Description
MIR6217 microRNA precursor family: a 227-nucleotide RNA sequence from Miscanthus lutarioriparius. The family has 2 seed sequences and 2,266 matches in Rfam 15.1. Gene Ontology terms of the family: miRNA-mediated post-transcriptional gene silencing and RISC complex. The organism belongs to Miscanthus, within Eukaryota. The match comes from Rfam's covariance-model search (168 bits). The base pairs follow the family's consensus structure, which was predicted with RNAalifold.
RNA sequence: CAAUACCCAGGUAAUAUUCUGUAGCCACUUUGAGUUACGAUAAUUACUAUGUUAAUUUACGAGAUUAUAGUAACUCCUAACUAAGUGGUUUACUAUAACGUUAUGGGUAAAUAUCCCCAUGCGUUAUAGUAACUCAACUAUCGUAAAUAUGUAUUGACAUUAUCAUAAAUUAGUAUAUAAAAUUAUCGUAAAUGGAGGUGACUACAGAAUAACUUAUUUUGUAGCUG
Numbered sequence: 001c002a003a004u005a006c007c008c009a010g011g012u013a014a015u016a017u018u019c020u021g022u023a024g025c026c027a028c029u030u031u032g033a034g035u036u037a038c039g040a041u042a043a044u045u046a047c048u049a050u051g052u053u054a055a056u057u058u059a060c061g062a063g064a065u066u067a068u069a070g071u072a073a074c075u076c077c078u079a080a081c082u083a084a085g086u087g088g089u090u091u092a093c094u095a096u097a098a099c100g101u102u103a104u105g106g107g108u109a110a111a112u113a114u115c116c117c118c119a120u121g122c123g124u125u126a127u128a129g130u131a132a133c134u135c136a137a138c139u140a141u142c143g144u145a146a147a148u149a150u151g152u153a154u155u156g157a158c159a160u161u162a163u164c165a166u167a168a169a170u171u172a173g174u175a176u177a178u179a180a181a182a183u184u185a186u187c188g189u190a191a192a193u194g195g196a197g198g199u200g201a202c203u204a205c206a207g208a209a210u211a212a213c214u215u216a217u218u219u220u221g222u223a224g225c226u227g
Base pairs, nucleotide, nucleotide: 001227002226004224007221009219010218011217012216013215014214015211016210017209018208019207020206021205022204023203024202026200027199028198029197030196031195035191036190037189038188039187040186041185042184043183044182045181048177049176050175051174052173053172054171055170056169057168058167059166063164064163065162067160068159072154078146080144081143085141086140087139088138089137090136091131092130093129094128095127096126097125098124099123100122101121105116106115